[Rfam]
RNA sequence: UCUAUGAAGAGUACAAGAAUUUGUGAGUAAUAUUUAUUUGAUACGAAAUCAUACUCGAUGAAGUAGGAA
Numbered sequence: 001u002c003u004a005u006g007a008a009g010a011g012u013a014c015a016a017g018a019a020u021u022u023g024u025g026a027g028u029a030a031u032a033u034u035u036a037u038u039u040g041a042u043a044c045g046a047a048a049u050c051a052u053a054c055u056c057g058a059u060g061a062a063g064u065a066g067g068a069a
Stems, first nucleotide, its partner, number of pairs: 001067005009056005022051002031043002033040001